[Rfam]
RNA: Fluoride riboswitch aptamer (crcB RNA motif)
Organism: Tepidibacillus fermentans
Nucleotides: 065
Stems, first nucleotide, its partner, number of pairs: 010025004016056006033046004
Number, partner (000 for none) and nucleotide at each position: 001000u002000a003000c004000a005000u006000a007000a008000u009000u010025g011024g012023c013022g014000a015000u016056g017055g018054a019053g020052u021051u022013c023012g024011c025010c026000u027000u028000u029000a030000a031000c032000c033046g034045c035044u036043a037000u038000u039000u040000a041000u042000a043036u044035a045034g046033c047000u048000a049000a050000u051021g052020a053019c054018u055017c056016c057000u058000a059000c060000u061000a062000g063000a064000a065000g